[Rfam]
RNA sequence: UUGAAGCUCCGUCUACAAAUGGAUAAAUUUUCGUUCGUAGUUUAGUAUAUACAAGUUAUGGAAAGUAAGGGGGCAAUUCCUGUUUCUUGACAAACCAGGAAACUGGUUAUUGCUUCUUU
Numbered sequence: 001u002u003g004a005a006g007c008u009c010c011g012u013c014u015a016c017a018a019a020u021g022g023a024u025a026a027a028u029u030u031u032c033g034u035u036c037g038u039a040g041u042u043u044a045g046u047a048u049a050u051a052c053a054a055g056u057u058a059u060g061g062a063a064a065g066u067a068a069g070g071g072g073g074c075a076a077u078u079c080c081u082g083u084u085u086c087u088u089g090a091c092a093a094a095c096c097a098g099g100a101a102a103c104u105g106g107u108u109a110u111u112g113c114u115u116c117u118u119u
Stems, first nucleotide, its partner, number of pairs: 008023005067119011080105001082103001084101005

The record is a 119-nucleotide sequence from Carnegiea gigantea, which matches "Plastid-psbA-1 3UTR RNA" in Rfam. A reference for the family is Richter et al. (2023), "Retrograde signaling in plants: A critical review focusing on the GUN pathway and beyond", Plant Commun. Lineage of the source: Eukaryota > Embryophyta > Spermatophyta > Cactaceae > Carnegiea. It is annotated as a cis-regulatory element. Plastid psbA-1 is a non-coding RNA (ncRNA) present in plastids. It was identified in inverted repeat sequences in the 3 prime untranslate region (3UTR) of photosystem II quinone-binding protein (psbA).